[Rfam]
ALIL pseudoknot: a 117-nucleotide sequence from Egibacter rhizosphaerae. A search with the family's covariance model found it, with a score of 94 bits. Rfam classes the family as a cis-regulatory element.

RNA sequence: GGCGUAUUUUGCGUCGGCGGAGCUCGACCGCCCACGCCGGUGAUGGUUGCCUUCAUCGACGAUCACAAGGUCGAGCUCGGGGUCGAGCCGAUCUGCGCGCAGUUGCCGAUCGCCCCG
Numbered sequence: 001g002g003c004g005u006a007u008u009u010u011g012c013g014u015c016g017g018c019g020g021a022g023c024u025c026g027a028c029c030g031c032c033c034a035c036g037c038c039g040g041u042g043a044u045g046g047u048u049g050c051c052u053u054c055a056u057c058g059a060c061g062a063u064c065a066c067a068a069g070g071u072c073g074a075g076c077u078c079g080g081g082g083u084c085g086a087g088c089c090g091a092u093c094u095g096c097g098c099g100c101a102g103u104u105g106c107c108g109a110u111c112g113c114c115c116c117g
Base pairs, nucleotide, nucleotide: 016032017031018030019029020028078117079116080115081114082113089112090111092109093108095106096105097104

The source organism's lineage runs through Bacteria, Nitriliruptoria, Egibacterales, Egibacteraceae and Egibacter.